[Rfam]
RNA sequence: GGCAGUUCUCUGUUGACACAUUCCAGAAUGGGGCUUCCUCCUCUCUGGUUCUGGGUGCAUCACCUGAGAACUGCA
Numbered sequence: 001g002g003c004a005g006u007u008c009u010c011u012g013u014u015g016a017c018a019c020a021u022u023c024c025a026g027a028a029u030g031g032g033g034c035u036u037c038c039u040c041c042u043c044u045c046u047g048g049u050u051c052u053g054g055g056u057g058c059a060u061c062a063c064c065u066g067a068g069a070a071c072u073g074c075a
Stems, first nucleotide, its partner, number of pairs: 002074002005071006012064001014062003019057005025052005031046003
The record is a 75-nucleotide sequence from Cnephaeus nilssonii, which matches "mir-9223 microRNA precursor family" in Rfam.
Lineage of the source: Eukaryota > Deuterostomia > Amniota > Laurasiatheria > Cnephaeus.
The family's consensus secondary structure was predicted with RNAalifold.
It scores 67 bits against the family's covariance model.